[Rfam]
Nucleotides: 098
Base pairs, nucleotide, nucleotide: 001015002014003013004012007052008051009050010049011048016043017042018041019040020039021038022037023036054078055077056076057075058074063094064093065092066091067090
Number, partner (000 for none) and nucleotide at each position: 001015c002014c003013c004012g005000a006000g007052c008051c009050a010049g011048a012004c013003g014002g015001g016043c017042c018041g019040g020039c021038g022037c023036u024000u025000u026000c027000c028000c029000g030000g031000u032000a033000g034000g035000u036023g037022g038021c039020g040019c041018u042017g043016g044000a045000u046000a047000a048011u049010c050009u051008g052007g053000a054078c055077g056076c057075g058074g059000c060000u061000u062000u063094g064093u065092c066091g067090a068000u069000c070000u071000g072000u073000g074058c075057c076056g077055c078054g079000u080000a081000c082000g083000g084000a085000a086000a087000u088000c089000a090067u091066c092065g093064a094063c095000a096000g097000c098000c
A member of the RNA family "Proteo-phage-1 RNA" from Salinisphaera orenii, 98 nucleotides long. Rfam classes the family as a small RNA.